[Rfam]
RNA: mir-802 microRNA precursor family
RNA sequence: GUCCUAUUAUUUGCAGUCAGUAACAAAGAUUCAUCCUUGUGUCGAUCAUACAGCACGGAGAGUCUUUGUCACUCAGUGUAAUUAAUAGCCUUCAC
Numbered sequence: 001g002u003c004c005u006a007u008u009a010u011u012u013g014c015a016g017u018c019a020g021u022a023a024c025a026a027a028g029a030u031u032c033a034u035c036c037u038u039g040u041g042u043c044g045a046u047c048a049u050a051c052a053g054c055a056c057g058g059a060g061a062g063u064c065u066u067u068g069u070c071a072c073u074c075a076g077u078g079u080a081a082u083u084a085a086u087a088g089c090c091u092u093c094a095c
Stems, first nucleotide, its partner, number of pairs: 004088006011081005017075001019073003023069010034059003038055003041051002